[Rfam]
RNA sequence: GUGGGUUAUGGUGACAUGUGCCCCAUAACUUUGGGGGGUAAGAUGGUGGGCACCCUGUGUGCCAUUGCUGGUGUUUUGACCAUUGCUCUGCCUGUUCCUGUCAUUGUCUCCAAC
Numbered sequence: 001g002u003g004g005g006u007u008a009u010g011g012u013g014a015c016a017u018g019u020g021c022c023c024c025a026u027a028a029c030u031u032u033g034g035g036g037g038g039u040a041a042g043a044u045g046g047u048g049g050g051c052a053c054c055c056u057g058u059g060u061g062c063c064a065u066u067g068c069u070g071g072u073g074u075u076u077u078g079a080c081c082a083u084u085g086c087u088c089u090g091c092c093u094g095u096u097c098c099u100g101u102c103a104u105u106g107u108c109u110c111c112a113a114c
Stems, first nucleotide, its partner, number of pairs: 001114002004111002008107004013102004018097001020095002037077002040074001049063003
Dot-bracket structure: ((.((..((((.((((.(.((...............((.(........(((.........)))..........).))................)).).)))).))))..)).))
Overview
The record is a 114-nucleotide RNA sequence from Lepisosteus oculatus, which matches "Potassium channel RNA editing signal" in Rfam. Rfam classes the family as a cis-regulatory element. For this family Rfam cites "Control of human potassium channel inactivation by editing of a small mRNA hairpin" (Bhalla et al., Nat Struct Mol Biol, 2004). Taxonomically the source falls in Lepisosteus (Eukaryota, Chordata, Semionotiformes, Lepisosteidae).